Background:
A member of the RNA family "mir-3492 microRNA precursor family" from Schistosoma haematobium, 78 nucleotides long. A search with the family's covariance model found it, with a score of 48 bits. Its family is annotated with miRNA-mediated post-transcriptional gene silencing and RISC complex in the Gene Ontology. Rfam 15.1 lists 21,496 matches to the family in 13 species. The source organism's lineage runs through Eukaryota, Bilateria, Trematoda, Schistosomatidae and Schistosoma. The family's consensus secondary structure was predicted with RNAalifold.
RNA sequence: AGCUUAUUGAAUCCGUACUGAGAUUUUGUUAGACACCAACCCAUUCGAACUGAUCAGACUUCAAAGAUAAGUGAAGUU
Number, nucleotide and partner (000 for none) at each position: 001a000002g077003c076004u075005u074006a000007u000008u071009g000010a000011a068012u067013c066014c000015g000016u063017a000018c000019u000020g061021a060022g059023a000024u058025u057026u056027u000028g054029u053030u052031a000032g000033a000034c000035a000036c000037c000038a000039a000040c000041c000042c000043a000044u000045u000046c000047g000048a000049a000050c000051u000052g030053a029054u028055c000056a026057g025058a024059c022060u021061u020062c000063a016064a000065a000066g013067a012068u011069a000070a000071g008072u000073g000074a005075a004076g003077u002078u000